[Rfam]
RNA: Nuclear RNase P
RNA sequence: GUGAGUGGAAGCUCAUUGUAGAGAUCACGUGCUGAGUGUUCAUCACUCUACCAAUCAUCUCGGGGAAGGUCUGAGACAAGAGCCAAUAGUUGUCCUUGCAGGACAUCACCUGAUUCGGGUGAGCGAGUGAACAGAAAAUAUGGGUCAACUCGUGCAGUUCUAACAGGAGAAGUCGGUGGGGGCAGUUUCUCAGCCCCGCCGGCGGAUGUGACGCACGCUGACUUGGAAUCGCUCGCGGCUGGCAAAUGAGUGCGAUGUGUGAGGUGGAGCACUGCUCUAGAACCCAAUUCAGACUACUCUCCACUCAC
Dot-bracket structure: ((((..(((..(((((....((((.........(((((.....))))).........)))).........[[[[[.....((((......(((((.....)))))((((((.....))))))(((((((..............(((.........................................................................))).......)))))))))))..................))))).((((((...))))))........]]]]].......)))..))))